[Rfam]
Nucleotides: 129
Stems, first nucleotide, its partner, number of pairs: 007036005012030007039091006049084003052061003065081005092119012
Number, partner (000 for none) and nucleotide at each position: 001000u002000g003000a004000g005000c006000g007036u008035a009034c010033g011032g012030a013029c014028u015027u016026c017025c018024u019000c020000u021000g022000a023000a024018a025017g026016g027015a028014a029013g030012u031000g032011c033010u034009g035008u036007g037000u038000a039091c040090c041089g042088a043087g044086g045000u046000c047000a048000a049084g050083u051082g052061a053060a054059u055000u056000g057000a058000c059054g060053u061052u062000u063000a064000a065081g066080c067079g068078c069077g070000a071000u072000g073000u074000a075000a076000g077069c078068g079067c080066g081065c082051c083050g084049c085000c086044c087043c088042u089041c090040g091039g092119g093118g094117a095116g096115a097114a098113a099112c100111c101110g102109c103108c104000g105000g106000u107000u108103g109102g110101c111100g112099g113098u114097u115096u116095c117094u118093u119092u120000u121000u122000u123000a124000c125000c126000c127000a128000a129000u